Rfam assigns this 138-nucleotide sequence from Podarcis muralis to the family "Small nucleolar RNA SNORA42/SNORA80 family". It scores 85 bits against the family's covariance model. Pairs were carried over by alignment from the consensus structure, which was predicted with RNAalifold. Rfam 15.1 lists 1,535 matches to the family in 183 species. Gene Ontology terms of the family: nucleolus and RNA processing. From the family's description: The members of this family belong to the H/ACA class of snoRNAs that guide the sites of modification of uridines to pseudouridines. Human ACA42 (SNORA42) was cloned from HeLa cells by immunoprecipitation with anti-GAR1 antibody.

RNA sequence: GCAUGGCUCUGGAUUUAUGGCGGGUCUGGUUCCAUAGAUCCCUCCAUAGUGUACUCCAUGCUAAAGCAAGCUGCUACUCCGAACCAUUGGCCAGUCUGGCUUGUAGUAGCCCUGGCUACUGAAGUGAGUGGCACAUGU
Numbered sequence: 001g002c003a004u005g006g007c008u009c010u011g012g013a014u015u016u017a018u019g020g021c022g023g024g025u026c027u028g029g030u031u032c033c034a035u036a037g038a039u040c041c042c043u044c045c046a047u048a049g050u051g052u053a054c055u056c057c058a059u060g061c062u063a064a065a066g067c068a069a070g071c072u073g074c075u076a077c078u079c080c081g082a083a084c085c086a087u088u089g090g091c092c093a094g095u096c097u098g099g100c101u102u103g104u105a106g107u108a109g110c111c112c113u114g115g116c117u118a119c120u121g122a123a124g125u126g127a128g129u130g131g132c133a134c135a136u137g138u
Base pairs, nucleotide, nucleotide: 001061002060003059004058005056006055008053015049016048017047018046019045020044022042023041024040025038026037074131075130076129077128078127079126085121086120090116091115094111096109097108